[Rfam]
Nucleotides: 257
Stems, first nucleotide, its partner, number of pairs: 002257010014215006022052004028042001030040004057243003061240004076087004089102005105185002112177001115174001122170002125167001134164001136162002150157002217227004
Number, partner (000 for none) and nucleotide at each position: 001000u002257c003256a004255c005254c006253a007252c008251u009250g010249g011248a012000c013000a014215a015214a016213g017212c018211g019210a020000u021000c022052g023051g024050g025049c026000u027000g028042c029000g030040a031039u032038u033037u034000u035000a036000g037033a038032a039031a040030u041000a042028g043000a044000a045000u046000c047000a048000g049025g050024c051023c052022c053000a054000g055000g056000a057243a058242a059241g060000u061240c062239c063238c064237c065000g066000g067000g068000c069000c070000a071000c072000c073000a074000u075000c076087u077086g078085c079084a080000g081000a082000g083000a084079u085078g086077c087076a088000g089102g090101c091100c092099u093098g094000g095000a096000a097000a098093c099092g100091g101090g102089u103000a104000a105185a106184c107000g108000c109000u110000g111000c112177u113000g114000a115174g116000u117000u118000g119000g120000a121000g122170u123169c124000c125167u126000a127000u128000c129000g130000c131000u132000u133000a134164a135000u136162g137161c138000g139000g140000u141000g142000a143000g144000g145000c146000u147000g148000a149000g150157a151156c152000a153000u154000g155000u156151g157150u158000g159000g160000a161137g162136c163000c164134u165000u166000c167125a168000u169123g170122g171000u172000c173000u174115u175000c176000a177112a178000c179000c180000c181000a182000g183000a184106g185105u186000a187000a188000a189000u190000u191000g192000g193000c194000c195000g196000a197000u198000u199000u200000g201000u202000a203000c204000a205000g206000u207000u208000a209000u210019u211018c212017g213016c214015u215014u216000g217227g218226u219225c220224c221000u222000u223000u224220g225219g226218a227217c228000u229000a230000a231000c232000u233000g234000a235000a236000c237064g238063g239062g240061g241059c242058u243057u244000a245000u246000g247000c248011u249010u250009c251008a252007g253006u254005g255004g256003u257002g